Source information
The family of this 368-nucleotide RNA from Marinilabilia rubra is "Bacterial RNase P class A".
[Rfam]
RNA sequence: ACAGCAGGCCGGCUUGUCGCCCAAAGGGGAGGAAAGUCCGGACAACACAGAGCACUGCGCUUCUUAACGGGAAGGUGGCUGUAAAGUCACGAAGGUGUAGCAGAAAAUUACCGCCUUUAGAGGUAAGGGUGAAAAGGUGGGGUAAGAGCCCACCGGAUCUUGUGGUGACAUGAGGUGCCGUACACCCCGCAGGUUGCAAGACCAUGUAUAUCGCGGUACUCAUUUGAGUACGGAAUGGCUCGUUCCGGUUCUUUUUACAGAUGCCGCGAAGGGUAGGUCGCUAAAGGGAUUAGGUAACUGGUUCCGCAGAUCAAUGACAAGCCCCUUUUUAUCAGGGACAGAAUCCGGCUUACAGGCUUGCUGUUUUU
Numbered sequence: 001a002c003a004g005c006a007g008g009c010c011g012g013c014u015u016g017u018c019g020c021c022c023a024a025a026g027g028g029g030a031g032g033a034a035a036g037u038c039c040g041g042a043c044a045a046c047a048c049a050g051a052g053c054a055c056u057g058c059g060c061u062u063c064u065u066a067a068c069g070g071g072a073a074g075g076u077g078g079c080u081g082u083a084a085a086g087u088c089a090c091g092a093a094g095g096u097g098u099a100g101c102a103g104a105a106a107a108u109u110a111c112c113g114c115c116u117u118u119a120g121a122g123g124u125a126a127g128g129g130u131g132a133a134a135a136g137g138u139g140g141g142g143u144a145a146g147a148g149c150c151c152a153c154c155g156g157a158u159c160u161u162g163u164g165g166u167g168a169c170a171u172g173a174g175g176u177g178c179c180g181u182a183c184a185c186c187c188c189g190c191a192g193g194u195u196g197c198a199a200g201a202c203c204a205u206g207u208a209u210a211u212c213g214c215g216g217u218a219c220u221c222a223u224u225u226g227a228g229u230a231c232g233g234a235a236u237g238g239c240u241c242g243u244u245c246c247g248g249u250u251c252u253u254u255u256u257a258c259a260g261a262u263g264c265c266g267c268g269a270a271g272g273g274u275a276g277g278u279c280g281c282u283a284a285a286g287g288g289a290u291u292a293g294g295u296a297a298c299u300g301g302u303u304c305c306g307c308a309g310a311u312c313a314a315u316g317a318c319a320a321g322c323c324c325c326u327u328u329u330u331a332u333c334a335g336g337g338a339c340a341g342a343a344u345c346c347g348g349c350u351u352a353c354a355g356g357c358u359u360g361c362u363g364u365u366u367u368u
Stems, first nucleotide, its partner, number of pairs: 001364010011353001012322007020029003034351003038348005043196004055192005060074005075090001077088004091187001095185005111128002113124004136154006156178001157176008200279004211269008286305008